The record is a 77-nucleotide RNA sequence from Phtheirospermum japonicum, which matches "Small nucleolar RNA SNORD18" in Rfam. The family's RNA type in Rfam is C/D-box small nucleolar RNA. The family's consensus secondary structure was predicted with PFOLD. On this family, see Prislei et al., Nucleic Acids Res 1993: "Two different snoRNAs are encoded in introns of amphibian and human L1 ribosomal protein genes". Rfam links the family to the GO terms nucleolus and RNA processing.
[Rfam]
RNA sequence: GAGAUAUGAUGAAUACUUUUAUUGGUCCGUGUUUCUGAAUAAACUGUGACUGAUAACUCUUACCAAACUCUGAUCUC
Numbered sequence: 001g002a003g004a005u006a007u008g009a010u011g012a013a014u015a016c017u018u019u020u021a022u023u024g025g026u027c028c029g030u031g032u033u034u035c036u037g038a039a040u041a042a043a044c045u046g047u048g049a050c051u052g053a054u055a056a057c058u059c060u061u062a063c064c065a066a067a068c069u070c071u072g073a074u075c076u077c
Stems, first nucleotide, its partner, number of pairs: 001077004